Rfam assigns this 121-nucleotide RNA sequence to the family "pemK RNA". The family's RNA type in Rfam is cis-regulatory element. It is one of the family's seed sequences.
RNA sequence: AUAAUGAUACUUGCGUCCAGUCACAGGCCGAGCGUUGAAGCGGUACGAACAAAGAGCCGUGAGCCGUCGCAGCCAAUGAGGGCGCCUCGCAGAGAUCCUGGGAGGGGUGAGAUUCCCAUGA
Number, nucleotide and partner (000 for none) at each position: 001a000002u000003a000004a000005u000006g000007a000008u000009a000010c000011u000012u118013g085014c084015g083016u082017c081018c080019a000020g000021u000022c000023a000024c000025a000026g000027g000028c000029c000030g000031a000032g000033c000034g000035u000036u000037g000038a000039a000040g000041c000042g000043g000044u000045a000046c000047g000048a000049a000050c000051a000052a000053a000054g000055a000056g000057c000058c000059g000060u000061g000062a000063g000064c000065c000066g000067u000068c000069g000070c000071a000072g000073c000074c000075a000076a000077u000078g000079a000080g018081g017082g016083c015084g014085c013086c104087u103088c102089g000090c100091a099092g098093a000094g000095a000096u000097c000098c092099u091100g090101g000102g088103a087104g086105g117106g116107g115108u000109g000110a000111g000112a000113u000114u000115c107116c106117c105118a012119u000120g000121a000